[Rfam]
RNA sequence: UGAGCGUUCUAGACGUAGUAACAACGAAUGAUGAGAAGUCAGCCGAUGCCAUAGUAGCGAUGAAACUUCUGUAAUGGAAGUAGAGCGAAGGGC
Numbered sequence: 001u002g003a004g005c006g007u008u009c010u011a012g013a014c015g016u017a018g019u020a021a022c023a024a025c026g027a028a029u030g031a032u033g034a035g036a037a038g039u040c041a042g043c044c045g046a047u048g049c050c051a052u053a054g055u056a057g058c059g060a061u062g063a064a065a066c067u068u069c070u071g072u073a074a075u076g077g078a079a080g081u082a083g084a085g086c087g088a089a090g091g092g093c
Stems, first nucleotide, its partner, number of pairs: 001026002007020001009018003038047003048093003057086002065081003